RNA: ASpks TB sRNA
Organism: Streptomyces roseus
RNA sequence: CUUGAUCGAGCCCAGCAGCAGCGGCCGUCCGUCCUGCGGGCGCUCCUGGCCGUACGUGUCCAGCAGCGCCUGCGCCUC
Dot-bracket structure: ..............((.......)).........(((...((...(((..((....))..)))...))...)))....